This 82-nucleotide RNA from Cricetulus griseus belongs to the Rfam family "mir-3473 microRNA precursor family".
Nucleotides: 082
Base pairs, nucleotide, nucleotide: 002081003080004079005078006077007076008075009074010073011072012071013070014069015068016067017066018065019064020063021062022061023060024059
Number, partner (000 for none) and nucleotide at each position: 001000a002081c003080c004079g005078c006077u007076g008075a009074g010073c011072c012071a013070u014069c015068u016067c017066u018065c019064c020063a021062g022061c023060c024059c025000c026000c027000a028000a029000u030000a031000a032000a033000u034000a035000a036000a037000u038000c039000u040000u041000a042000a043000a044000a045000a046000a047000a048000a049000u050000u051000a052000a053000a054000a055000a056000g057000a058000g059024g060023g061022g062021c063020u064019g065018g066017a067016g068015a069014g070013a071012u072011g073010g074009c075008u076007c077006a078005g079004c080003g081002g082000u
Rfam links the family to the GO terms cellular response to mechanical stimulus, miRNA-mediated post-transcriptional gene silencing and RISC complex.